[Rfam]
The record is a 413-nucleotide RNA, which matches "Giant, ornate, lake- and Lactobacillales-derived (GOLLD) RNA" in Rfam. A reference for the family is Weinberg et al. (2009), "Exceptional structured noncoding RNAs revealed by bacterial metagenome analysis", Nature.
RNA sequence: GAGGGUAGUUUAGUAUCGUGUCAUUCAAAAGAUGAUUUGGCUUGUGACGAGCCGCUACCUUCCACAUCCGUAAACCAAACCUUAAUUGUUAAUUCUGGUUUAACAACUAUUAAUUAAAAUCAAGGAAAAGUGCUCGUCAGUCGUUGGAAACAGGUGACUACUUAGUCUUGAGAUGUUCAUGACCGCGUCGGGUCCCAAGCCCUACACGAUUUUCACGAAAGUUCUCUAACCCCGCAAGGGUUCAUCAGGGAGGCAUCCUUGAAGAGUGAUGAGUAAGGAGAGAGUAUUCAGCGACUUCACGAAUGGUUCAACGUAAUUGACCGUCACUGAGAGUUACUACUCAAAAGGUAGUGGAAACGGAGGGAAUCAAUAAUCCUUCUAAAGAUUCUCAUCAGAACUUGUAUUCUCAGAGU
Numbered sequence: 001g002a003g004g005g006u007a008g009u010u011u012a013g014u015a016u017c018g019u020g021u022c023a024u025u026c027a028a029a030a031g032a033u034g035a036u037u038u039g040g041c042u043u044g045u046g047a048c049g050a051g052c053c054g055c056u057a058c059c060u061u062c063c064a065c066a067u068c069c070g071u072a073a074a075c076c077a078a079a080c081c082u083u084a085a086u087u088g089u090u091a092a093u094u095c096u097g098g099u100u101u102a103a104c105a106a107c108u109a110u111u112a113a114u115u116a117a118a119a120u121c122a123a124g125g126a127a128a129a130g131u132g133c134u135c136g137u138c139a140g141u142c143g144u145u146g147g148a149a150a151c152a153g154g155u156g157a158c159u160a161c162u163u164a165g166u167c168u169u170g171a172g173a174u175g176u177u178c179a180u181g182a183c184c185g186c187g188u189c190g191g192g193u194c195c196c197a198a199g200c201c202c203u204a205c206a207c208g209a210u211u212u213u214c215a216c217g218a219a220a221g222u223u224c225u226c227u228a229a230c231c232c233c234g235c236a237a238g239g240g241u242u243c244a245u246c247a248g249g250g251a252g253g254c255a256u257c258c259u260u261g262a263a264g265a266g267u268g269a270u271g272a273g274u275a276a277g278g279a280g281a282g283a284g285u286a287u288u289c290a291g292c293g294a295c296u297u298c299a300c301g302a303a304u305g306g307u308u309c310a311a312c313g314u315a316a317u318u319g320a321c322c323g324u325c326a327c328u329g330a331g332a333g334u335u336a337c338u339a340c341u342c343a344a345a346a347g348g349u350a351g352u353g354g355a356a357a358c359g360g361a362g363g364g365a366a367u368c369a370a371u372a373a374u375c376c377u378u379c380u381a382a383a384g385a386u387u388c389u390c391a392u393c394a395g396a397a398c399u400u401g402u403a404u405u406c407u408c409a410g411a412g413u
Stems, first nucleotide, its partner, number of pairs: 001062009010044001012042003017039002020036006046138007124196002139296010154327005165183003169179002184208002187205002190202004211281004224266004229241004245262003249258002305322003309319002329390006335353007354406003359379006398412003
The base pairs follow the family's consensus structure, which is taken from published work. Rfam classes the family as a non-coding RNA gene.